The record is a 129-nucleotide RNA sequence from Desulfosporosinus sp. Tol-M, which matches "pan motif" in Rfam.
[Rfam]
Nucleotides: 129
Stems, first nucleotide, its partner, number of pairs: 001026003004022005010017002099125001101123001102121005108116002
Number, partner (000 for none) and nucleotide at each position: 001026c002025a003024g004022a005021c006020a007019a008018u009000a010017u011016c012000g013000g014000a015000a016011g017010a018008g019007u020006u021005g022004u023000a024003c025002u026001g027000u028000a029000u030000u031000g032000g033000g034000u035000a036000g037000c038000u039000g040000a041000c042000u043000u044000a045000u046000a047000u048000g049000g050000a051000g052000u053000a054000g055000a056000a057000u058000u059000u060000a061000g062000a063000a064000a065000g066000a067000a068000a069000g070000c071000a072000a073000a074000a075000u076000u077000g078000a079000a080000a081000a082000g083000u084000c085000c086000u087000u088000a089000u090000a091000c092000c093000g094000c095000a096000u097000a098000g099125c100000c101123g102121c103120u104119u105118g106117g107000a108116u109115c110000u111000g112000a113000a114000u115109g116108a117106c118105c119104g120103a121102g122000a123101c124000a125099g126000a127000g128000g129000g
NCBI's taxonomy places the organism under Bacteria, Bacillati, Bacillota, Desulfitobacteriaceae, Desulfosporosinus.